[Rfam]
RNA sequence: GUGCAAAUGAUGGAAAAGUCACUAUUUAGGAAAGAAUGACAUGACCAAAGGAACUGCUGGUGUGC
Numbered sequence: 001g002u003g004c005a006a007a008u009g010a011u012g013g014a015a016a017a018g019u020c021a022c023u024a025u026u027u028a029g030g031a032a033a034g035a036a037u038g039a040c041a042u043g044a045c046c047a048a049a050g051g052a053a054c055u056g057c058u059g060g061u062g063u064g065c
Stems, first nucleotide, its partner, number of pairs: 001065005
The family of this 65-nucleotide sequence from Nyctereutes procyonoides is "Small nucleolar RNA SNORD42".
It scores 50 bits against the family's covariance model.
The base pairs follow the family's consensus structure, which was predicted with PFOLD.
Rfam's curators write: snoRNA U42 is found in intron 3 of the ribosomal protein L23a (RPL23a) gene in humans and is also present in mice.
Gene Ontology terms of the family: RNA processing and nucleolus.
Rfam classes the family as a C/D-box small nucleolar RNA.
Taxonomically the source falls in Nyctereutes (Eukaryota, Tetrapoda, Theria, Canidae).
For this family Rfam cites "Purified box C/D snoRNPs are able to reproduce site-specific 2'-O-methylation of target RNA in vitro" (Galardi et al., Mol Cell Biol, 2002).